[Rfam]
RNA sequence: AACCGACAUCAGCGAUUCGUUCUGCGAACCGUGGCCGACCGCCAGAUAAGCGUUCAUUCCCAGUUCGCGCAUCUGCUGUUCGCCGAUCACGCGGGUGAUAACCUUUUUGCUGUAGCUGUCGGCCAACUGGCGCGCCUGUGACGCCAGGUAGGCGGCGUUACAGAUAUUGGGCGGCAUGUUGCCGAGAUCUUUUGC
Number, nucleotide and partner (000 for none) at each position: 001a000002a000003c000004c000005g189006a188007c000008a000009u000010c000011a000012g032013c031014g030015a000016u028017u027018c026019g025020u024021u000022c000023u000024g020025c019026g018027a017028a016029c000030c014031g013032u012033g043034g042035c041036c000037g000038a000039c000040c000041g035042c034043c033044a000045g000046a000047u000048a000049a000050g059051c000052g000053u000054u000055c000056a000057u000058u000059c050060c000061c000062a077063g076064u075065u000066c000067g000068c000069g000070c000071a000072u000073c000074u000075g064076c063077u062078g135079u134080u000081c132082g131083c130084c129085g128086a000087u126088c000089a000090c000091g123092c122093g000094g120095g119096u118097g117098a000099u112100a111101a000102c109103c000104u000105u000106u000107u000108u000109g102110c000111u100112g099113u000114a000115g000116c000117u097118g096119u095120c094121g000122g092123c091124c000125a000126a087127c000128u085129g084130g083131c082132g081133c000134g079135c078136c163137u162138g161139u000140g159141a158142c157143g156144c155145c154146a000147g000148g000149u000150a000151g000152g000153c000154g145155g144156c143157g142158u141159u140160a000161c138162a137163g136164a000165u000166a000167u186168u185169g000170g183171g182172c181173g000174g000175c000176a000177u000178g000179u000180u000181g172182c171183c170184g000185a168186g167187a000188u006189c005190u000191u000192u000193u000194g000195c000
Yersinia sRNA 276: a 195-nucleotide RNA from Salmonella enterica. The sequence is in the family's curated seed alignment. On this family, see Nuss et al., PLoS Genet 2015: "Transcriptomic profiling of Yersinia pseudotuberculosis reveals reprogramming of the Crp regulon by temperature and uncovers Crp as a master regulator of small RNAs".